[Rfam]
RNA sequence: CUGAGGUCACCGCCUAAGGGGCCGGCAGGCCCCGCCGGGGACCCACAUGUAGUACUCGGGGUGAAUCGCCGGAGUGCGGCGCCACAACGGCGACGCACACCGCGUAGGGCAUCUUCCUCGCCCGAACCCGUCAGCUAACUCGGUCGGCGGUCGGGAAGAAACAU
Numbered sequence: 001c002u003g004a005g006g007u008c009a010c011c012g013c014c015u016a017a018g019g020g021g022c023c024g025g026c027a028g029g030c031c032c033c034g035c036c037g038g039g040g041a042c043c044c045a046c047a048u049g050u051a052g053u054a055c056u057c058g059g060g061g062u063g064a065a066u067c068g069c070c071g072g073a074g075u076g077c078g079g080c081g082c083c084a085c086a087a088c089g090g091c092g093a094c095g096c097a098c099a100c101c102g103c104g105u106a107g108g109g110c111a112u113c114u115u116c117c118u119c120g121c122c123c124g125a126a127c128c129c130g131u132c133a134g135c136u137a138a139c140u141c142g143g144u145c146g147g148c149g150g151u152c153g154g155g156a157a158g159a160a161a162c163a164u
Stems, first nucleotide, its partner, number of pairs: 011149004018033006034144006044058001059129003067104003107123004

c-di-AMP riboswitch aptamer (ydaO/yuaA leader): a 164-nucleotide RNA sequence from Tsukamurella paurometabola. NCBI's taxonomy places the organism under Bacteria, Actinomycetota, Actinomycetes, Mycobacteriales, Tsukamurella paurometabola. About the family: This family represents a conserved RNA structure found upstream of the ydaO and yuaA genes in Bacillus subtilis and related genes in other bacteria. The ydaO/yuaA element is thought to act as a genetic 'off' switch for the ydaO and yuaA genes in its native state. It is believed that the element may be triggered during osmotic shock leading to activation of ydaO, a predicted amino acid transporter gene, and members of the yuaA-yubG operon which code for KtrA and KtrB K+ transporters.